RT-3 RNA: a 144-nucleotide RNA sequence.
RNA sequence: UAUUGUCAGAAGGCUAAAGGGAAUCCCCUACCGUGGUGCCGAGGGAAGCAAGCCACAGCAAAAGCGCACAGGCGCGGAAAGCUGAAAAAUCACGCGUCGGGUGGAGUUUGGUAGGCUCAAGUCAGCUCGCAGAAGUCAGCACCG
Numbered sequence: 001u002a003u004u005g006u007c008a009g010a011a012g013g014c015u016a017a018a019g020g021g022a023a024u025c026c027c028c029u030a031c032c033g034u035g036g037u038g039c040c041g042a043g044g045g046a047a048g049c050a051a052g053c054c055a056c057a058g059c060a061a062a063a064g065c066g067c068a069c070a071g072g073c074g075c076g077g078a079a080a081g082c083u084g085a086a087a088a089a090u091c092a093c094g095c096g097u098c099g100g101g102u103g104g105a106g107u108u109u110g111g112u113a114g115g116c117u118c119a120a121g122u123c124a125g126c127u128c129g130c131a132g133a134a135g136u137c138a139g140c141a142c143c144g
Stems, first nucleotide, its partner, number of pairs: 003042003007038002013034002018029004044054002056084004065074003098144003104137002107134003114127004